[Rfam]
RNA sequence: CUCGCUUCGGAAGUGGUGGGCUAUUGCAUCGCGUGCCUUCGGCACU
Dot-bracket structure: ((((((.(....).))))))............(((((...))))).

This 46-nucleotide sequence from Candidatus Korobacter versatilis belongs to the Rfam family "Acido-Lenti-1 RNA". NCBI's taxonomy places the organism under Bacteria, Acidobacteriota, Terriglobia, Candidatus Korobacter, Candidatus Korobacter versatilis. The base pairs follow the family's consensus structure, which is taken from published work. The sequence is in the family's curated seed alignment.